[Rfam]
RNA sequence: CUGGAGGCUUGGGGCGAUACCACCACUCGUUUGUCUGUUGGCGAUUGGUGUUGUCCCCCCGAGUGGCCAG
Numbered sequence: 001c002u003g004g005a006g007g008c009u010u011g012g013g014g015c016g017a018u019a020c021c022a023c024c025a026c027u028c029g030u031u032u033g034u035c036u037g038u039u040g041g042c043g044a045u046u047g048g049u050g051u052u053g054u055c056c057c058c059c060c061g062a063g064u065g066g067c068c069a070g
Stems, first nucleotide, its partner, number of pairs: 001070004007064008016055004021050005027044005
RNA: mir-K12-10 microRNA precursor family
Organism: Rhadinovirus humangamma8